[Rfam]
RNA sequence: GGGGCUGAUUUUGGAUUCGACGGGAUUAGCAAAGCCCAAGGUGCACGUCGAGGUGCGGUAGGCCUCGUAAACAAACCGCAAAAAAAUAGUCGCAAACGACGAACAAUACGCUUUAGCAGCUUAAUAACCUGCUUAUCGCCUUCACUCCCUAGCUUUCGCUCGUAAGACGGGGAUCAAGUGGAGUCAAACCCAAACGAGAUCGUGUUGAAGCCGCUGCUUUAGGAUCGAAGCACUAAAUUGAAUAAAGCUAGUUUACUGAUAGCGUGUCUGUCCGCAGUCAGUUUACGAAUGUAAAGACCGACUAAACGUGUAGUGCUGAAGGUAGAGUGAUUUCGGACGGGGGUUCAAAUCCCCCCAGCUCCACCA
Numbered sequence: 001g002g003g004g005c006u007g008a009u010u011u012u013g014g015a016u017u018c019g020a021c022g023g024g025a026u027u028a029g030c031a032a033a034g035c036c037c038a039a040g041g042u043g044c045a046c047g048u049c050g051a052g053g054u055g056c057g058g059u060a061g062g063c064c065u066c067g068u069a070a071a072c073a074a075a076c077c078g079c080a081a082a083a084a085a086a087u088a089g090u091c092g093c094a095a096a097c098g099a100c101g102a103a104c105a106a107u108a109c110g111c112u113u114u115a116g117c118a119g120c121u122u123a124a125u126a127a128c129c130u131g132c133u134u135a136u137c138g139c140c141u142u143c144a145c146u147c148c149c150u151a152g153c154u155u156u157c158g159c160u161c162g163u164a165a166g167a168c169g170g171g172g173a174u175c176a177a178g179u180g181g182a183g184u185c186a187a188a189c190c191c192a193a194a195c196g197a198g199a200u201c202g203u204g205u206u207g208a209a210g211c212c213g214c215u216g217c218u219u220u221a222g223g224a225u226c227g228a229a230g231c232a233c234u235a236a237a238u239u240g241a242a243u244a245a246a247g248c249u250a251g252u253u254u255a256c257u258g259a260u261a262g263c264g265u266g267u268c269u270g271u272c273c274g275c276a277g278u279c280a281g282u283u284u285a286c287g288a289a290u291g292u293a294a295a296g297a298c299c300g301a302c303u304a305a306a307c308g309u310g311u312a313g314u315g316c317u318g319a320a321g322g323u324a325g326a327g328u329g330a331u332u333u334c335g336g337a338c339g340g341g342g343g344u345u346c347a348a349a350u351c352c353c354c355c356c357a358g359c360u361c362c363a364c365c366a
Base pairs, nucleotide, nucleotide: 001362002361003360004359005358006357007356021335022334023333024332025331026330027329028328034323035322036321040317041316042315044310045309046308047307048306049067050066051065052064053063054080055079056078057077058076059075114135115134116132117131118130119129140183141182142181143180144179145178147172148171149170150169153166154165155164159198160197161196162195163194202233203232204231205230206229216248217247218246219245220244251286252285255282256281257280258279259278260277262275263274264273266302267301268300270298271297272296339355340354341353342352343351
RNA: transfer-messenger RNA